Overview: Rfam assigns this 74-nucleotide RNA sequence from Castor canadensis to the family "Small nucleolar RNA SNORD28". A search with the family's covariance model found it, with a score of 88 bits. Gene Ontology terms of the family: RNA processing and nucleolus.

[Rfam]
RNA sequence: GUCAGAUGAUUUGAAUAAAAAAGCUGAUGUUCUGUGAGGUAUGACAAUAAUAGCAUGUUAGAGUUCUGAUGGCA
Numbered sequence: 001g002u003c004a005g006a007u008g009a010u011u012u013g014a015a016u017a018a019a020a021a022a023g024c025u026g027a028u029g030u031u032c033u034g035u036g037a038g039g040u041a042u043g044a045c046a047a048u049a050a051u052a053g054c055a056u057g058u059u060a061g062a063g064u065u066c067u068g069a070u071g072g073c074a
Stems, first nucleotide, its partner, number of pairs: 001073004
Dot-bracket structure: ((((.................................................................)))).

The base pairs follow the family's consensus structure, which was predicted with PFOLD. For this family Rfam cites "A small nucleolar RNA requirement for site-specific ribose methylation of rRNA in Xenopus" (Tycowski et al., Proc Natl Acad Sci U S A, 1996).